[Rfam]
RNA: FGF-2 internal ribosome entry site (IRES)
RNA sequence: CUGCGGCCAGAGCGCCUGACCCAGAGGCCGGCCCCAGAAAACCCCGAGCGAGUAGGGGGCGGCGCGCGGGGAGGGAGGAGAGCCGGGGGCGUAGUGGGUUGGUGGGUGUUGGGGGUGGAGAUGUAGAAGAGGUGACGCCGCGGCCCGGCGGGCGCCAGACCAGCGGACGCGGUGCCCGCGGUUGCAACCGGAUCCCGGGCGCUGCAGCUUGGGGAGGCGGCUGUGCCGAGAGCGGCGGCCGCGGAGACACCCAGCCCCAACCCCAGCGGCUCGCCGCGCCGGGGCCGGCGGAGGGCAGCGGCCGAGCGGCGCGAGGCUGGGGGCCCGCCGGGCGCGGCCGCGCGCCGCCGGGAGGGAGGCUGGGGGGCCGGGGCCGGGGCCGCGCCCCGGAGCGGGUCGGAGGCCGGGGCCGGGGCCGGGGGGCGGCGGCUCCCCGCGCGGCUCCAGGGGCUCGGGGGCCCCGGCAGGGCCCCGGCGGGGCCAUG
Numbered sequence: 001c002u003g004c005g006g007c008c009a010g011a012g013c014g015c016c017u018g019a020c021c022c023a024g025a026g027g028c029c030g031g032c033c034c035c036a037g038a039a040a041a042c043c044c045c046g047a048g049c050g051a052g053u054a055g056g057g058g059g060c061g062g063c064g065c066g067c068g069g070g071g072a073g074g075g076a077g078g079a080g081a082g083c084c085g086g087g088g089g090c091g092u093a094g095u096g097g098g099u100u101g102g103u104g105g106g107u108g109u110u111g112g113g114g115g116u117g118g119a120g121a122u123g124u125a126g127a128a129g130a131g132g133u134g135a136c137g138c139c140g141c142g143g144c145c146c147g148g149c150g151g152g153c154g155c156c157a158g159a160c161c162a163g164c165g166g167a168c169g170c171g172g173u174g175c176c177c178g179c180g181g182u183u184g185c186a187a188c189c190g191g192a193u194c195c196c197g198g199g200c201g202c203u204g205c206a207g208c209u210u211g212g213g214g215a216g217g218c219g220g221c222u223g224u225g226c227c228g229a230g231a232g233c234g235g236c237g238g239c240c241g242c243g244g245a246g247a248c249a250c251c252c253a254g255c256c257c258c259a260a261c262c263c264c265a266g267c268g269g270c271u272c273g274c275c276g277c278g279c280c281g282g283g284g285c286c287g288g289c290g291g292a293g294g295g296c297a298g299c300g301g302c303c304g305a306g307c308g309g310c311g312c313g314a315g316g317c318u319g320g321g322g323g324c325c326c327g328c329c330g331g332g333c334g335c336g337g338c339c340g341c342g343c344g345c346c347g348c349c350g351g352g353a354g355g356g357a358g359g360c361u362g363g364g365g366g367g368c369c370g371g372g373g374c375c376g377g378g379g380c381c382g383c384g385c386c387c388c389g390g391a392g393c394g395g396g397u398c399g400g401a402g403g404c405c406g407g408g409g410c411c412g413g414g415g416c417c418g419g420g421g422g423g424c425g426g427c428g429g430c431u432c433c434c435c436g437c438g439c440g441g442c443u444c445c446a447g448g449g450g451c452u453c454g455g456g457g458g459c460c461c462c463g464g465c466a467g468g469g470c471c472c473c474g475g476c477g478g479g480g481c482c483a484u485g
Stems, first nucleotide, its partner, number of pairs: 029370007044355002058349010083266001085264004091258001103253006144191002148179009196241003200237006211227001213226001215224001217222001272313003277308001278289004386396004406473006417467001419465001436453001438451002454462003